[Rfam]
RNA sequence: UCCGAGCAAAGUUCUGCAGUACACUUAGACUCUUUUCUGUCUGCAGUCAGUGCAUUACAGAACUUUGUUUUGGG
Dot-bracket structure: ...(((((((((((((.....((((..((((.............)))))))).....)))))))))))))....
mir-148/mir-152 microRNA precursor family: a 74-nucleotide sequence from Synaphobranchus kaupii. Rfam 15.1 lists 1,272 matches to the family in 609 species. Rfam links the family to the GO terms RISC complex and miRNA-mediated post-transcriptional gene silencing. Taxonomically the source falls in Synaphobranchus (Eukaryota, Eumetazoa, Gnathostomata, Synaphobranchidae). On this family, see Lagos-Quintana et al., Curr Biol 2002: "Identification of tissue-specific microRNAs from mouse".